RNA sequence: CCAAAUGUUUUCUAGGGUUCCGCAAUGAAUCAAGUAAUUGGACUGGUCCAAGAGAAAGCGCACAGGAUACACUGUGACACGGAGGGACAAAAGCCCGGGAGAU
Numbered sequence: 001c002c003a004a005a006u007g008u009u010u011u012c013u014a015g016g017g018u019u020c021c022g023c024a025a026u027g028a029a030u031c032a033a034g035u036a037a038u039u040g041g042a043c044u045g046g047u048c049c050a051a052g053a054g055a056a057a058g059c060g061c062a063c064a065g066g067a068u069a070c071a072c073u074g075u076g077a078c079a080c081g082g083a084g085g086g087a088c089a090a091a092a093g094c095c096c097g098g099g100a101g102a103u
Base pairs, nucleotide, nucleotide: 007059008058009057010056011055012054015049016048020046021045022043023040024039025038026037028035061076062075063074065072078098080101084096085095086094
RNA: Guanidine-I riboswitch aptamer
Organism: Halobacillus andaensis